[Rfam]
Nucleotides: 086
Stems, first nucleotide, its partner, number of pairs: 017069006024062002028058005034053004
Number, partner (000 for none) and nucleotide at each position: 001000c002000u003000g004000c005000c006000c007000c008000c009000u010000g011000u012000g013000a014000g015000c016000u017069u018068c019067c020066c021065u022064u023000u024062g025061u026000c027000a028058u029057c030056c031055u032054a033000u034053g035052c036051c037050u038000g039000a040000g041000c042000c043000a044000u045000c046000c047000u048000g049000g050037a051036g052035g053034c054032u055031g056030g057029g058028a059000c060000g061025g062024c063000c064022a065021a066020g067019g068018g069017a070000g071000g072000c073000c074000c075000a076000c077000g078000g079000g080000a081000g082000c083000c084000a085000c086000a